[Rfam]
RNA sequence: AUGUACCUCGCGUACAACGCGGUUCCUAUGCGCCGUCCACGCCCACCUGACCACUGCUCGCCAGGGUUUGGCU
Numbered sequence: 001a002u003g004u005a006c007c008u009c010g011c012g013u014a015c016a017a018c019g020c021g022g023u024u025c026c027u028a029u030g031c032g033c034c035g036u037c038c039a040c041g042c043c044c045a046c047c048u049g050a051c052c053a054c055u056g057c058u059c060g061c062c063a064g065g066g067u068u069u070g071g072c073u
Stems, first nucleotide, its partner, number of pairs: 002016005020035004025030001049073001051071003

Rfam assigns this 73-nucleotide sequence from Xanthomonas oryzae to the family "Xanthomonas sRNA sX9".
A reference for the family is Schmidtke et al. (2011), "Genome-wide transcriptome analysis of the plant pathogen Xanthomonas identifies sRNAs with putative virulence functions", Nucleic Acids Res.